[Rfam]
RNA sequence: CUUGCCGAGAGGCGCUGCAACGGACCAAGGUCCGCCACGCUCGGCCGGGUUAAAUGACGCAAGGGCGCCUCCUGAGA
Numbered sequence: 001c002u003u004g005c006c007g008a009g010a011g012g013c014g015c016u017g018c019a020a021c022g023g024a025c026c027a028a029g030g031u032c033c034g035c036c037a038c039g040c041u042c043g044g045c046c047g048g049g050u051u052a053a054a055u056g057a058c059g060c061a062a063g064g065g066c067g068c069c070u071c072c073u074g075a076g077a
Base pairs, nucleotide, nucleotide: 002047004045005044006043007042008041021034022033023032024031025030
RNA: SAH (S-adenosyl-L-homocysteine) riboswitch aptamer